[Rfam]
RNA sequence: UGUUCAGCCGGGAAUGAAGUUCUCCCGCGGCGUAAUGCCGAAACCGCAAAAAAGGCUGAUGACUUCUGCCAAAGG
Number, nucleotide and partner (000 for none) at each position: 001u000002g000003u000004u000005c000006a000007g000008c000009c000010g026011g025012g024013a023014a000015u000016g066017a065018a064019g063020u062021u061022c000023u013024c012025c011026c010027g000028c000029g000030g000031c000032g000033u000034a000035a000036u000037g000038c000039c000040g000041a000042a000043a000044c000045c000046g056047c055048a000049a000050a000051a000052a000053a000054g000055g047056c046057u000058g000059a000060u000061g021062a020063c019064u018065u017066c016067u000068g000069c000070c000071a000072a000073a000074g000075g000

The record is a 75-nucleotide RNA sequence from Acetanaerobacterium elongatum, which matches "Fluoride riboswitch aptamer (crcB RNA motif)" in Rfam. Gene Ontology terms of the family: positive regulation of gene expression and response to fluoride. The match comes from Rfam's covariance-model search (39 bits).